[Rfam]
RNA sequence: GUUGGUUACGGUGACAUGCGACCACGAACAUUGGCGGGAAAACUUGUGGGCAGCGUUUGUGCCAUAAGCGGCGUUCUUAUGAUCGCGUUGCCUGUCUCUGUGGUUGCAAGUAAU
Numbered sequence: 001g002u003u004g005g006u007u008a009c010g011g012u013g014a015c016a017u018g019c020g021a022c023c024a025c026g027a028a029c030a031u032u033g034g035c036g037g038g039a040a041a042a043c044u045u046g047u048g049g050g051c052a053g054c055g056u057u058u059g060u061g062c063c064a065u066a067a068g069c070g071g072c073g074u075u076c077u078u079a080u081g082a083u084c085g086c087g088u089u090g091c092c093u094g095u096c097u098c099u100g101u102g103g104u105u106g107c108a109a110g111u112a113a114u
Stems, first nucleotide, its partner, number of pairs: 001114002004111001007108001009106003014101003018097001020095001037077004049063003

A member of the RNA family "Potassium channel RNA editing signal" from Nematostella vectensis, 114 nucleotides long. The base pairs follow the family's consensus structure, which is taken from published work. The family's RNA type in Rfam is cis-regulatory element.